[Rfam]
RNA: mir-217 microRNA precursor family
RNA sequence: UGUUGUGGAUACUGCAUCAGGAACUGAUUGGAUAGUGAUGGAUUGCCAUCAGUUCUUAAUGCAUUGUCU
Dot-bracket structure: ............(((((.(((((((((.(((..............)))))))))))).)))))......